Rfam assigns this 79-nucleotide sequence from Dyella dinghuensis to the family "SAH (S-adenosyl-L-homocysteine) riboswitch aptamer".
RNA sequence: CCCGCCGAGGGGCGCUGCGACCGUGAAUGCUGACGGCCAGGCUCGGUGGAUGCUUCGACUAGAACGGCGCUCAUGACGC
Numbered sequence: 001c002c003c004g005c006c007g008a009g010g011g012g013c014g015c016u017g018c019g020a021c022c023g024u025g026a027a028u029g030c031u032g033a034c035g036g037c038c039a040g041g042c043u044c045g046g047u048g049g050a051u052g053c054u055u056c057g058a059c060u061a062g063a064a065c066g067g068c069g070c071u072c073a074u075g076a077c078g079c
Base pairs, nucleotide, nucleotide: 002049003048004047005046006045007044008043021036022035023034024033026031
The family's consensus secondary structure is taken from published work. It scores 57 bits against the family's covariance model.